[Rfam]
Notes: TPP riboswitch aptamer (THI element): a 112-nucleotide sequence from Ornithinicoccus hortensis. It scores 56 bits against the family's covariance model. Its family is annotated with thiamine pyrophosphate binding in the Gene Ontology.
RNA sequence: AGCGCACGACAGGGGAGCGCGUCAGCGCUGAGAGUGCGGCGAGAACAGGACGCCGCAGACCCUUGAACCUGAUCCGGUUCGUACCGGUGGAGGAAGUCGACCGACAUGCUGC
Numbered sequence: 001a002g003c004g005c006a007c008g009a010c011a012g013g014g015g016a017g018c019g020c021g022u023c024a025g026c027g028c029u030g031a032g033a034g035u036g037c038g039g040c041g042a043g044a045a046c047a048g049g050a051c052g053c054c055g056c057a058g059a060c061c062c063u064u065g066a067a068c069c070u071g072a073u074c075c076g077g078u079u080c081g082u083a084c085c086g087g088u089g090g091a092g093g094a095a096g097u098c099g100a101c102c103g104a105c106a107u108g109c110u111g112c
Stems, first nucleotide, its partner, number of pairs: 007099004011063004017028004035057007068093003074087004